A member of the RNA family "Early nodulin 40" from Mikania micrantha, 187 nucleotides long. The family has 35 seed sequences and 341 matches in Rfam 15.1. Its family is annotated with nodulation in the Gene Ontology.
RNA sequence: AUGCAUUGGCAUGUAUCUUGAGAAUCAAGGCAAGUAUGAAGGGAAAGAAGAUGAGUUACACCUUCAACUACCAUCUCUUUCCUUUCAUCUUUCUGAUAGUUUGAUCCUGUUAUUAUCAGUUUUCACCUGAUAAUAUCAGAACAAACCGGCAAGUCACAAAACGGCAAAGGAGACUCACUCGAGUCUU
Numbered sequence: 001a002u003g004c005a006u007u008g009g010c011a012u013g014u015a016u017c018u019u020g021a022g023a024a025u026c027a028a029g030g031c032a033a034g035u036a037u038g039a040a041g042g043g044a045a046a047g048a049a050g051a052u053g054a055g056u057u058a059c060a061c062c063u064u065c066a067a068c069u070a071c072c073a074u075c076u077c078u079u080u081c082c083u084u085u086c087a088u089c090u091u092u093c094u095g096a097u098a099g100u101u102u103g104a105u106c107c108u109g110u111u112a113u114u115a116u117c118a119g120u121u122u123u124c125a126c127c128u129g130a131u132a133a134u135a136u137c138a139g140a141a142c143a144a145a146c147c148g149g150c151a152a153g154u155c156a157c158a159a160a161a162c163g164g165c166a167a168a169g170g171a172g173a174c175u176c177a178c179u180c181g182a183g184u185c186u187u
Base pairs, nucleotide, nucleotide: 042085043084044083099146100145101144102143103142118136172185173184174183175182176181
Taxonomically the source falls in Mikania (Eukaryota, Spermatophyta, Gunneridae, campanulids).